This 112-nucleotide RNA from Oryza sativa belongs to the Rfam family "mir-395 microRNA precursor family". The family has 25 seed sequences and 2,798 matches in Rfam 15.1. The base pairs follow the family's consensus structure, which was predicted with PFOLD.

RNA sequence: UUGUUACCUGGAGUUUCCUCAACACACUUCACAUCUGCUAGGCCCUAUUACAAUUGCGCAAUGUGGAGUCUGCAAUUGGUAGUGAAGUGUUUGGGGGAACUCUAGGUGGCAC
Numbered sequence: 001u002u003g004u005u006a007c008c009u010g011g012a013g014u015u016u017c018c019u020c021a022a023c024a025c026a027c028u029u030c031a032c033a034u035c036u037g038c039u040a041g042g043c044c045c046u047a048u049u050a051c052a053a054u055u056g057c058g059c060a061a062u063g064u065g066g067a068g069u070c071u072g073c074a075a076u077u078g079g080u081a082g083u084g085a086a087g088u089g090u091u092u093g094g095g096g097g098a099a100c101u102c103u104a105g106g107u108g109g110c111a112c
Base pairs, nucleotide, nucleotide: 005108006107007106008105009104011102012101013100014099015098016097017096018095019094020093022092024090025089026088027087028086029085030084031083032082035079036078